Overview:
The record is a 168-nucleotide RNA sequence from Medicago truncatula, which matches "MIR2619 microRNA precursor family" in Rfam. The source organism's lineage runs through Eukaryota, Viridiplantae, Embryophyta, Gunneridae and Medicago. Gene Ontology terms of the family: RISC complex and miRNA-mediated post-transcriptional gene silencing.

[Rfam]
RNA sequence: AAACUGCCUCCUAAGUUUUGCAACUGUAGCAGUUUUGACCCUCAAGGCAAGAAAAAUAUAAAAAAUAAUACGUGACACCUCACUUAGGGUGUCACGUCAGCGUAGACCAAGUCAAAAUUGAUCUUGGAGGCCAAAAAUGCCACAGGUGCAAAACUUAGGGGGCGGUUU
Numbered sequence: 001a002a003a004c005u006g007c008c009u010c011c012u013a014a015g016u017u018u019u020g021c022a023a024c025u026g027u028a029g030c031a032g033u034u035u036u037g038a039c040c041c042u043c044a045a046g047g048c049a050a051g052a053a054a055a056a057u058a059u060a061a062a063a064a065a066u067a068a069u070a071c072g073u074g075a076c077a078c079c080u081c082a083c084u085u086a087g088g089g090u091g092u093c094a095c096g097u098c099a100g101c102g103u104a105g106a107c108c109a110a111g112u113c114a115a116a117a118u119u120g121a122u123c124u125u126g127g128a129g130g131c132c133a134a135a136a137a138u139g140c141c142a143c144a145g146g147u148g149c150a151a152a153a154c155u156u157a158g159g160g161g162g163c164g165g166u167u168u
Base pairs, nucleotide, nucleotide: 001168002167004165005164006163007162008161012157013156014155015154016153017152018151019150020149021148022147024145025144026143027142029140030139031138033136034135035134036133037132039130040129042127043126044125045124070097071096073094074093075092076091077090078089079088